[Rfam]
RNA sequence: AAAUGGAAGUAGAAGCACCCGCUUCUCGCCUUAGUGACAGAUGUGGCUGGGCAGAAUAGUUUUUACACAAAAAAGUUCGUUAGAGCUUAGUGUGGAUACGUGCGGGUUCUUAUAGAAGAACUCGUUUUUUUAUGGUGAU
Numbered sequence: 001a002a003a004u005g006g007a008a009g010u011a012g013a014a015g016c017a018c019c020c021g022c023u024u025c026u027c028g029c030c031u032u033a034g035u036g037a038c039a040g041a042u043g044u045g046g047c048u049g050g051g052c053a054g055a056a057u058a059g060u061u062u063u064u065a066c067a068c069a070a071a072a073a074a075g076u077u078c079g080u081u082a083g084a085g086c087u088u089a090g091u092g093u094g095g096a097u098a099c100g101u102g103c104g105g106g107u108u109c110u111u112a113u114a115g116a117a118g119a120a121c122u123c124g125u126u127u128u129u130u131u132a133u134g135g136u137g138a139u
Stems, first nucleotide, its partner, number of pairs: 011026006028052003034047002037044002102125009
RNA: Ribosomal protein L20 leader